The record is a 76-nucleotide sequence from Gorilla gorilla, which matches "mir-1290 microRNA precursor family" in Rfam. Gene Ontology terms of the family: miRNA-mediated post-transcriptional gene silencing and RISC complex. Pairs were carried over by alignment from the consensus structure, which was predicted with RNAalifold.
RNA sequence: GAGUGUCAUAUUAGCACUCAAAAAGUUUCAGAUUUUGGAGCACUUUGGAUUUUGAGUUUUUGGAUUAGAGAUGCUC
Numbered sequence: 001g002a003g004u005g006u007c008a009u010a011u012u013a014g015c016a017c018u019c020a021a022a023a024a025g026u027u028u029c030a031g032a033u034u035u036u037g038g039a040g041c042a043c044u045u046u047g048g049a050u051u052u053u054g055a056g057u058u059u060u061u062g063g064a065u066u067a068g069a070g071a072u073g074c075u076c
Stems, first nucleotide, its partner, number of pairs: 001076007011068004018063007027056006034049006